[Rfam]
RNA sequence: CCGGGGAGCCGGGCAGCCGCGUCGCCGCAUGGCGUCGAGGAAAGUCCGGGCUCCACGAAACGAGGGUGGCGGGUAACGCCCGCCGGGCGAGCGGCCUGGCCGCGAAGCUCAGGGAAAGUGCCACAGAGAGUAUACCGCCGAUGGCCCCGUGUGGGCACAGGCAAGGGUGAAAGGGUGCGGUAAAAGCGCACCGGAGGGCCGGUAACGGUCAACGCAUGGUAAACCCCACCCGGAGCAAGACCGAAUAGGGGUGUCGCACCGCCGGAUCGCAAGACGAGGCGGCAGGGGAGUUUCGCCCCGAGGCACCCGGGUUGGUUGCUGGAGCGGCCUGGCAACAGGUCGCCGAGAUGAAUGGCUGCCACCGCGGAUACGGUCCGUUCGAGGAAACGAGACGGAUACCGUCCGGGGAACAGAACCCGGCUUACAGGCUCCCCGGCACA
Numbered sequence: 001c002c003g004g005g006g007a008g009c010c011g012g013g014c015a016g017c018c019g020c021g022u023c024g025c026c027g028c029a030u031g032g033c034g035u036c037g038a039g040g041a042a043a044g045u046c047c048g049g050g051c052u053c054c055a056c057g058a059a060a061c062g063a064g065g066g067u068g069g070c071g072g073g074u075a076a077c078g079c080c081c082g083c084c085g086g087g088c089g090a091g092c093g094g095c096c097u098g099g100c101c102g103c104g105a106a107g108c109u110c111a112g113g114g115a116a117a118g119u120g121c122c123a124c125a126g127a128g129a130g131u132a133u134a135c136c137g138c139c140g141a142u143g144g145c146c147c148c149g150u151g152u153g154g155g156c157a158c159a160g161g162c163a164a165g166g167g168u169g170a171a172a173g174g175g176u177g178c179g180g181u182a183a184a185a186g187c188g189c190a191c192c193g194g195a196g197g198g199c200c201g202g203u204a205a206c207g208g209u210c211a212a213c214g215c216a217u218g219g220u221a222a223a224c225c226c227c228a229c230c231c232g233g234a235g236c237a238a239g240a241c242c243g244a245a246u247a248g249g250g251g252u253g254u255c256g257c258a259c260c261g262c263c264g265g266a267u268c269g270c271a272a273g274a275c276g277a278g279g280c281g282g283c284a285g286g287g288g289a290g291u292u293u294c295g296c297c298c299c300g301a302g303g304c305a306c307c308c309g310g311g312u313u314g315g316u317u318g319c320u321g322g323a324g325c326g327g328c329c330u331g332g333c334a335a336c337a338g339g340u341c342g343c344c345g346a347g348a349u350g351a352a353u354g355g356c357u358g359c360c361a362c363c364g365c366g367g368a369u370a371c372g373g374u375c376c377g378u379u380c381g382a383g384g385a386a387a388c389g390a391g392a393c394g395g396a397u398a399c400c401g402u403c404c405g406g407g408g409a410a411c412a413g414a415a416c417c418c419g420g421c422u423u424a425c426a427g428g429c430u431c432c433c434c435g436g437c438a439c440a
Base pairs, nucleotide, nucleotide: 001436002435003434004433005432006431007430008429009428010427011425012360013359014358015357016356017355018354020037021036023034024033025032026031042423043422044421046420047419048418049417050416051235052234053233054232060293062291064231065230066229067228068227069083070082071081072080073079084112085110086109087108088107113226114225118224119223120220121219122218135166136165137162138161139160142157143156145154174192175191176190177189178188179187193215194213197210198209199208200207201206239317240316241315242314249308250307251306252305253304254303285299286298287297288296324343325342326341327340328339329338330337331336

This 440-nucleotide RNA sequence from Altererythrobacter sp. B11 belongs to the Rfam family "Bacterial RNase P class A". Its family is annotated with ribonuclease P activity, dimeric ribonuclease P complex and tRNA processing in the Gene Ontology. Pairs were carried over by alignment from the consensus structure, which is taken from published work. A search with the family's covariance model found it, with a score of 256 bits.